Record summary: This 467-nucleotide RNA from Lachnellula hyalina belongs to the Rfam family "RNase MRP". The organism belongs to Lachnellula, within Eukaryota. Rfam's curators write: RNase MRP is an enzymatically active ribonucleoprotein with two distinct roles in eukaryotes. In mitochondria it plays a direct role in the initiation of mitochondrial DNA replication. In the nucleus it is involved in precursor rRNA processing, where it cleaves the internal transcribed spacer 1 between 18S and 5.8S rRNAs. Rfam links the family to the GO terms ribonuclease MRP activity, ribonuclease MRP complex and rRNA processing. It is annotated as a ribozyme. Its Rfam clan is "RNaseP clan". The literature on the family includes a 1993 paper in FASEB J by Schmitt et al., "Secondary structure of RNase MRP RNA as predicted by phylogenetic comparison".
RNA sequence: UCCUCGCUCAAAGAAUCGCAUUCGAAGCACACAAACAGAGAAAUUCCUCGGAAUAUCUCAGCUAGCAAUGGCUACUCAUGCUUUGGGAGAAAGUCCCCGGACAGCCUUCUUUCAGAAGGAUUGCGGAAACGCGCCGCCACAGAAGCACUGCGGCCUUCUCCUCUACCAAUUUCUCGUCCCUUCCUCCAUCCUUUCACCGUUUGCACCGCCUUCUUGUUGAUCUUAGGACCUUUGUUCUGAACUGAGAAGACCGCAUGGACGAAGAUAUGAGUCCGAGCUUCUCGUGCGAUGUUCUUUGGGACUAGAGGAUGUGAGAUUGCGGAAGGUGUCUGGACUGUUCUUGGCGUGGCGGGGAUGUUCUGGUCAGUGGAGGUUUUUUCGUCGAGAUCGAUAGUUAUGCGAUUGCCUUCUCAUGCCAUGCAAGUGGUGCAAGGGGUAACUCGAUGGGGCUUAUUCUUGAUGCGAGG
Numbered sequence: 001u002c003c004u005c006g007c008u009c010a011a012a013g014a015a016u017c018g019c020a021u022u023c024g025a026a027g028c029a030c031a032c033a034a035a036c037a038g039a040g041a042a043a044u045u046c047c048u049c050g051g052a053a054u055a056u057c058u059c060a061g062c063u064a065g066c067a068a069u070g071g072c073u074a075c076u077c078a079u080g081c082u083u084u085g086g087g088a089g090a091a092a093g094u095c096c097c098c099g100g101a102c103a104g105c106c107u108u109c110u111u112u113c114a115g116a117a118g119g120a121u122u123g124c125g126g127a128a129a130c131g132c133g134c135c136g137c138c139a140c141a142g143a144a145g146c147a148c149u150g151c152g153g154c155c156u157u158c159u160c161c162u163c164u165a166c167c168a169a170u171u172u173c174u175c176g177u178c179c180c181u182u183c184c185u186c187c188a189u190c191c192u193u194u195c196a197c198c199g200u201u202u203g204c205a206c207c208g209c210c211u212u213c214u215u216g217u218u219g220a221u222c223u224u225a226g227g228a229c230c231u232u233u234g235u236u237c238u239g240a241a242c243u244g245a246g247a248a249g250a251c252c253g254c255a256u257g258g259a260c261g262a263a264g265a266u267a268u269g270a271g272u273c274c275g276a277g278c279u280u281c282u283c284g285u286g287c288g289a290u291g292u293u294c295u296u297u298g299g300g301a302c303u304a305g306a307g308g309a310u311g312u313g314a315g316a317u318u319g320c321g322g323a324a325g326g327u328g329u330c331u332g333g334a335c336u337g338u339u340c341u342u343g344g345c346g347u348g349g350c351g352g353g354g355a356u357g358u359u360c361u362g363g364u365c366a367g368u369g370g371a372g373g374u375u376u377u378u379u380c381g382u383c384g385a386g387a388u389c390g391a392u393a394g395u396u397a398u399g400c401g402a403u404u405g406c407c408u409u410c411u412c413a414u415g416c417c418a419u420g421c422a423a424g425u426g427g428u429g430c431a432a433g434g435g436g437u438a439a440c441u442c443g444a445u446g447g448g449g450c451u452u453a454u455u456c457u458u459g460a461u462g463c464g465a466g467g
Base pairs, nucleotide, nucleotide: 002467003466004465005464006463007462008460009459010458011457014404015403016402017401018400019399022087023085024084025083026082027081028080038059039058040057041056043054044053045052046051091452092451093450095449096448097447098446122133123132124131125130275376276375277374281372282371283370285369286368287367291365293363294362298359299358301356342352344350345349406436407435408434409433411431